[Rfam]
Nucleotides: 058
Stems, first nucleotide, its partner, number of pairs: 006052002009049004022041008
Number, partner (000 for none) and nucleotide at each position: 001000c002000g003000c004000g005000c006052g007051g008000g009049c010048c011047g012046g013000g014000c015000c016000c017000c018000u019000c020000u021000g022041g023040c024039g025038u026037g027036g028035a029034u030000c031000u032000u033000c034029g035028u036027c037026c038025a039024c040023g041022c042000g043000a044000u045000g046012u047011c048010g049009g050000a051007c052006c053000g054000c055000a056000u057000c058000g
The family of this 58-nucleotide RNA from Acuticoccus sediminis is "terC RNA". By type it is a cis-regulatory element. The family's consensus secondary structure is taken from published work. The source organism's lineage runs through Bacteria, Pseudomonadati, Pseudomonadota, Alphaproteobacteria and Acuticoccus.